[Rfam]
RNA sequence: CAGAAGGAUACCUAGGGUUCCGCUUCGCUUUUUGGCGAAGGUCUGGUCCAAGCGGUAUCAACACCGGAUGCCCGGUGUACACCGUGGGGAAAAAAACCCCUUGCGGC
Numbered sequence: 001c002a003g004a005a006g007g008a009u010a011c012c013u014a015g016g017g018u019u020c021c022g023c024u025u026c027g028c029u030u031u032u033u034g035g036c037g038a039a040g041g042u043c044u045g046g047u048c049c050a051a052g053c054g055g056u057a058u059c060a061a062c063a064c065c066g067g068a069u070g071c072c073c074g075g076u077g078u079a080c081a082c083c084g085u086g087g088g089g090a091a092a093a094a095a096a097c098c099c100c101u102u103g104c105g106g107c
Base pairs, nucleotide, nucleotide: 007059008058009057010056011055012054015049016048020046021045022043023040024039025038026037027036028035061078062077063076064075065074066073067072081102083105087100088099089098
RNA: Guanidine-I riboswitch aptamer